[Rfam]
RNA: raiA RNA
RNA sequence: UUAAGUUAGGUUUGUGGUUGAAAGUCGAUGCCAGUCGCAGGCAAAACGAUCCACGUAAGUUAAACAAAGUUUAAUGAGCAUGGUGCGGUUUAGAGGUAAGUCCUGCCGUGAAAAACGAGAGAACAACUAGUGAGAGGUUAAUUCCGGGUAGCAAAAGUUCCAGCAGGCGAGUGUGGGGUCAAAGACCAGGUCAACUAACUUGA
Numbered sequence: 001u002u003a004a005g006u007u008a009g010g011u012u013u014g015u016g017g018u019u020g021a022a023a024g025u026c027g028a029u030g031c032c033a034g035u036c037g038c039a040g041g042c043a044a045a046a047c048g049a050u051c052c053a054c055g056u057a058a059g060u061u062a063a064a065c066a067a068a069g070u071u072u073a074a075u076g077a078g079c080a081u082g083g084u085g086c087g088g089u090u091u092a093g094a095g096g097u098a099a100g101u102c103c104u105g106c107c108g109u110g111a112a113a114a115a116c117g118a119g120a121g122a123a124c125a126a127c128u129a130g131u132g133a134g135a136g137g138u139u140a141a142u143u144c145c146g147g148g149u150a151g152c153a154a155a156a157g158u159u160c161c162a163g164c165a166g167g168c169g170a171g172u173g174u175g176g177g178g179u180c181a182a183a184g185a186c187c188a189g190g191u192c193a194a195c196u197a198a199c200u201u202g203a
Stems, first nucleotide, its partner, number of pairs: 001203009012194003015188005028174003031041001033090007050083002058075001060073001062071002081181001102167005107117003121160004130152002136145002